[Rfam]
RNA sequence: AGUUAAAGUUUAACUAUCUUUCGUAUAACCUCAAUAAUAUGGAUUGGGGGUCUCUACUUUGGAACCGCAAAUUCCUCGCUACGAAAAAUGUGCAUGGGCAC
Numbered sequence: 001a002g003u004u005a006a007a008g009u010u011u012a013a014c015u016a017u018c019u020u021u022c023g024u025a026u027a028a029c030c031u032c033a034a035u036a037a038u039a040u041g042g043a044u045u046g047g048g049g050g051u052c053u054c055u056a057c058u059u060u061g062g063a064a065c066c067g068c069a070a071a072u073u074c075c076u077c078g079c080u081a082c083g084a085a086a087a088a089u090g091u092g093c094a095u096g097g098g099c100a101c
Base pairs, nucleotide, nucleotide: 019086020085021084022083023082024081025080029049030048031047032046033045034044035043058078061075062074063073064072
RNA: Purine riboswitch aptamer